[Rfam]
The record is a 222-nucleotide RNA sequence from Auanema sp. JU1783, which matches "Nuclear RNase P" in Rfam.
RNA sequence: UUGGCUGGAAGACGGCGCUGGGGAUCACUCACAGGCCCAAGUGGCUUAAUAUCCCCGGGAAGGUCUGAGAUAAAGUCUAAAACGGUUUGAGAAGGACCACAUUCGAAGGAAUGUGGGAGUGUGCCAGAAAACGUUACCCUGUGGGGUUCUGAAACAUUCCCGACUAGCAGUUUCUGAGUGCGAUCGCCUAGCAAACACAAUUCAGACUAGUCUCCAGCUCAA
Numbered sequence: 001u002u003g004g005c006u007g008g009a010a011g012a013c014g015g016c017g018c019u020g021g022g023g024a025u026c027a028c029u030c031a032c033a034g035g036c037c038c039a040a041g042u043g044g045c046u047u048a049a050u051a052u053c054c055c056c057g058g059g060a061a062g063g064u065c066u067g068a069g070a071u072a073a074a075g076u077c078u079a080a081a082a083c084g085g086u087u088u089g090a091g092a093a094g095g096a097c098c099a100c101a102u103u104c105g106a107a108g109g110a111a112u113g114u115g116g117g118a119g120u121g122u123g124c125c126a127g128a129a130a131a132c133g134u135u136a137c138c139c140u141g142u143g144g145g146g147u148u149c150u151g152a153a154a155c156a157u158u159c160c161c162g163a164c165u166a167g168c169a170g171u172u173u174c175u176g177a178g179u180g181c182g183a184u185c186g187c188c189u190a191g192c193a194a195a196c197a198c199a200a201u202u203c204a205g206a207c208u209a210g211u212c213u214c215c216a217g218c219u220c221a222a
Stems, first nucleotide, its partner, number of pairs: 001222004007215003014189002020056005033047005065205005074165004084098005099114006115161007136147002
The source organism's lineage runs through Eukaryota, Eumetazoa, Rhabditina, Rhabditomorpha and Auanema. It is annotated as a ribozyme.